[Rfam]
RNA: BsrG
Organism: Virgibacillus indicus
RNA sequence: CAAUAGACUGGCUUCGCAUGAGGGGUUAGGUGCACCGGUUACCUUCUGGGAUAUUUCCCAUGGGAGGAGGUGCUGCCUAUGGAUAUGAAAGAUGUGUUAACGCUGAUGAUAUCAUUCGGCAUGUUAAUUGCGUUUGUCAUGUCCGAAAAAAAUGAAAAAUAAUCCCUCAUGCGCUUUAGUCGGGACGUGAGGGAUUAAUCUUGCGUACCUUCCCCCUCUUGAUGGGGUUGGUCUAUUGUACCGUUCCAUGUUACCAGCAUGGGAC
Numbered sequence: 001c002a003a004u005a006g007a008c009u010g011g012c013u014u015c016g017c018a019u020g021a022g023g024g025g026u027u028a029g030g031u032g033c034a035c036c037g038g039u040u041a042c043c044u045u046c047u048g049g050g051a052u053a054u055u056u057c058c059c060a061u062g063g064g065a066g067g068a069g070g071u072g073c074u075g076c077c078u079a080u081g082g083a084u085a086u087g088a089a090a091g092a093u094g095u096g097u098u099a100a101c102g103c104u105g106a107u108g109a110u111a112u113c114a115u116u117c118g119g120c121a122u123g124u125u126a127a128u129u130g131c132g133u134u135u136g137u138c139a140u141g142u143c144c145g146a147a148a149a150a151a152a153u154g155a156a157a158a159a160u161a162a163u164c165c166c167u168c169a170u171g172c173g174c175u176u177u178a179g180u181c182g183g184g185a186c187g188u189g190a191g192g193g194a195u196u197a198a199u200c201u202u203g204c205g206u207a208c209c210u211u212c213c214c215c216c217u218c219u220u221g222a223u224g225g226g227g228u229u230g231g232u233c234u235a236u237u238g239u240a241c242c243g244u245u246c247c248a249u250g251u252u253a254c255c256a257g258c259a260u261g262g263g264a265c
Stems, first nucleotide, its partner, number of pairs: 001238005007232003011228001015173008024164004032073003036070001081144003086141002095108002118138004184202002214227004243265010